[Rfam]
Nucleotides: 102
Base pairs, nucleotide, nucleotide: 001102002101003100004099005098006097007096010095013031014030015029016028017027022087023086024085033070036065037064038063039062040061041060075094076093077092078091079090
Number, partner (000 for none) and nucleotide at each position: 001102a002101g003100a004099a005098u006097a007096a008000a009000c010095g011000a012000g013031g014030a015029c016028g017027g018000a019000a020000c021000g022087g023086g024085c025000a026000g027017c028016c029015g030014u031013c032000g033070c034000c035000a036065c037064u038063u039062g040061a041060a042000a043000c044000a045000a046000a047000c048000c049000c050000a051000c052000g053000g054000c055000c056000g057000g058000g059000g060041u061040u062039c063038a064037a065036g066000g067000u068000a069000g070033g071000a072000g073000a074000u075094g076093u077092g078091g079090g080000a081000a082000c083000a084000g085024g086023u087022c088000g089000c090079c091078c092077c093076a094075c095010c096007u097006u098005a099004u100003u101002c102001u
A member of the RNA family "skipping-rope RNA", 102 nucleotides long. Rfam classes the family as a small RNA. It is one of the family's seed sequences.